[Rfam]
Rfam assigns this 123-nucleotide RNA from Enterobacillus tribolii to the family "Phenylalanine leader peptide". Rfam classes the family as a cis-regulatory leader. The match comes from Rfam's covariance-model search (113 bits). Gene Ontology term of the family: cellular amino acid metabolic process. Pairs were carried over by alignment from the consensus structure, which was predicted with CMfinder. On this family, see Gurvich et al., Nucleic Acids Res 2010: "Two groups of phenylalanine biosynthetic operon leader peptides genes: a high level of apparently incidental frameshifting in decoding Escherichia coli pheL".
RNA sequence: CAUGACGCAUGUACCGUUUUUCUUCGCAUUCUUUUUUACCUUCCCCUGACUGGGAGGCGCUUUUUCGCGUAAGAAUGCAUGCGAAGAAAAACAAAAAGCCUCCCAAAGGGAGGCUUUUUUUAU
Numbered sequence: 001c002a003u004g005a006c007g008c009a010u011g012u013a014c015c016g017u018u019u020u021u022c023u024u025c026g027c028a029u030u031c032u033u034u035u036u037u038a039c040c041u042u043c044c045c046c047u048g049a050c051u052g053g054g055a056g057g058c059g060c061u062u063u064u065u066c067g068c069g070u071a072a073g074a075a076u077g078c079a080u081g082c083g084a085a086g087a088a089a090a091a092c093a094a095a096a097a098g099c100c101u102c103c104c105a106a107a108g109g110g111a112g113g114c115u116u117u118u119u120u121u122a123u
Base pairs, nucleotide, nucleotide: 016092017091018090019089021087022086023085024084025083026082027081028080029079031077033075034074036072037071038070039069042055043054044053045052056066057065059063095117096116097115098114099113100112101111102110103109104108